[Rfam]
RNA sequence: ACACGGGAGGGAGGUGGUCCGAGACAUGAUUUCUUCUUGGACGAGUGAGGUGACUGCCCGCUAGUCGCGGACAGCAGAGUUCGGACGGAUUGCGAUCCGUUCGCCGCGCCGCCGGCCCGACCGGCCCGCGACGGGCGAAUCCCCGCAGUCACCGCAGCCCGUGGGAGCCGCGACCUCGUCCUUCGCGGCAGGGCCUCCAGCAGGGGGCCCGGCCCACGGGCUGUUCCCU
Numbered sequence: 001a002c003a004c005g006g007g008a009g010g011g012a013g014g015u016g017g018u019c020c021g022a023g024a025c026a027u028g029a030u031u032u033c034u035u036c037u038u039g040g041a042c043g044a045g046u047g048a049g050g051u052g053a054c055u056g057c058c059c060g061c062u063a064g065u066c067g068c069g070g071a072c073a074g075c076a077g078a079g080u081u082c083g084g085a086c087g088g089a090u091u092g093c094g095a096u097c098c099g100u101u102c103g104c105c106g107c108g109c110c111g112c113c114g115g116c117c118c119g120a121c122c123g124g125c126c127c128g129c130g131a132c133g134g135g136c137g138a139a140u141c142c143c144c145g146c147a148g149u150c151a152c153c154g155c156a157g158c159c160c161g162u163g164g165g166a167g168c169c170g171c172g173a174c175c176u177c178g179u180c181c182u183u184c185g186c187g188g189c190a191g192g193g194c195c196u197c198c199a200g201c202a203g204g205g206g207g208c209c210c211g212g213c214c215c216a217c218g219g220g221c222u223g224u225u226c227c228c229u
Stems, first nucleotide, its partner, number of pairs: 013058006059137004064132002067129004072124001074122001155223011168188006
RNA: Actinobacteria sRNA Ms_IGR-5
Organism: Cellulomonas pakistanensis